Annotation
This 179-nucleotide RNA from Tritonibacter multivorans belongs to the Rfam family "Ruegeria cis52 sRNA". Lineage of the source: Bacteria > Alphaproteobacteria > Rhodobacterales > Paracoccaceae > Tritonibacter. The match comes from Rfam's covariance-model search (136 bits). Rfam links the family to the GO term regulation of gene expression. A reference for the family is Rivers et al. (2016), "Experimental Identification of Small Non-Coding RNAs in the Model Marine Bacterium Ruegeria pomeroyi DSS-3", Front Microbiol. The base pairs follow the family's consensus structure, which was predicted with RNAfold.
RNA sequence: UGCGCAGCGCGUGUUUGAUCACGAUGUUGGGGAAGCUCACACCCUUCAGACGGGCGGUCCGGAUGUAUUGUGCGGUCAUCACCUCGGUCAUCGAUGCACGGGUCAUACGGGCAAUAUAGCCCAUGCCAUAAAGGGCAAUGGUCAGAACCGGCAGGAAGAAGUUCUCAAAGGUCGGGUUU
Numbered sequence: 001u002g003c004g005c006a007g008c009g010c011g012u013g014u015u016u017g018a019u020c021a022c023g024a025u026g027u028u029g030g031g032g033a034a035g036c037u038c039a040c041a042c043c044c045u046u047c048a049g050a051c052g053g054g055c056g057g058u059c060c061g062g063a064u065g066u067a068u069u070g071u072g073c074g075g076u077c078a079u080c081a082c083c084u085c086g087g088u089c090a091u092c093g094a095u096g097c098a099c100g101g102g103u104c105a106u107a108c109g110g111g112c113a114a115u116a117u118a119g120c121c122c123a124u125g126c127c128a129u130a131a132a133g134g135g136c137a138a139u140g141g142u143c144a145g146a147a148c149c150g151g152c153a154g155g156a157a158g159a160a161g162u163u164c165u166c167a168a169a170g171g172u173c174g175g176g177u178u179u
Stems, first nucleotide, its partner, number of pairs: 005140002009136002012133001014131002016128002020125002028123004040111001042109001046105001048103001051100002054097001055075001057073002060070003082096001084094003145179003148175005154165004